[Rfam]
RNA sequence: UUGGGGUAAUGUUCAAACAACAGGAAUGUUAUGUACAGUAUACUGUCAAUUCUAUAUGUAACGUUUUUGUUGUCUUACAUUGCUCCAC
Number, nucleotide and partner (000 for none) at each position: 001u000002u087003g086004g085005g084006g083007u082008a081009a080010u079011g000012u000013u000014c000015a000016a000017a073018c072019a071020a070021c069022a068023g067024g066025a065026a064027u063028g062029u061030u060031a059032u058033g057034u056035a055036c000037a053038g052039u000040a000041u000042a000043c000044u000045g000046u000047c000048a000049a000050u000051u000052c038053u037054a000055u035056a034057u033058g032059u031060a030061a029062c028063g027064u026065u025066u024067u023068u022069g021070u020071u019072g018073u017074c000075u000076u000077a000078c000079a010080u009081u008082g007083c006084u005085c004086c003087a002088c000

Rfam assigns this 88-nucleotide sequence from Leptidea sinapis to the family "mir-3327 microRNA precursor family". Pairs were carried over by alignment from the consensus structure, which was predicted with RNAalifold. Lineage of the source: Eukaryota > Metazoa > Hexapoda > Dismorphiinae > Leptidea. A search with the family's covariance model found it, with a score of 94 bits.